RNA sequence: AUGCAUCUUUUACAGACCUGAAGCAGUUAUGUCUGCUGCUAAGGUUUCCACUGCAGAUGCAAGAAAAAAGUGCCCUUGUGCUUUCUGUCUGUCUGUGGCAGCCAAGAUUGAGUAAAGGAAUACAAAC
Numbered sequence: 001a002u003g004c005a006u007c008u009u010u011u012a013c014a015g016a017c018c019u020g021a022a023g024c025a026g027u028u029a030u031g032u033c034u035g036c037u038g039c040u041a042a043g044g045u046u047u048c049c050a051c052u053g054c055a056g057a058u059g060c061a062a063g064a065a066a067a068a069a070g071u072g073c074c075c076u077u078g079u080g081c082u083u084u085c086u087g088u089c090u091g092u093c094u095g096u097g098g099c100a101g102c103c104a105a106g107a108u109u110g111a112g113u114a115a116a117g118g119a120a121u122a123c124a125a126a127c
Stems, first nucleotide, its partner, number of pairs: 002061007010050001014047005022037005074118004081110001084107003089101005
Shown here is a 127-nucleotide sequence from Castor canadensis, a member of the family "Small nucleolar RNA SNORA31". Lineage of the source: Eukaryota > Gnathostomata > Euarchontoglires > Castoridae > Castor. Rfam describes the family as follows. ACA31 (SNORA31) belongs to the H/ACA class of snoRNAs which are thought to guide the sites of modification of uridines to pseudouridines. ACA31 is predicted to guide the pseudouridylation of U3713 in 28S rRNA and U218 in 18S rRNA. This family includes the mouse homologue snoMBI-161. The family's consensus secondary structure was predicted with RNAalifold. Gene Ontology terms of the family: RNA processing and nucleolus.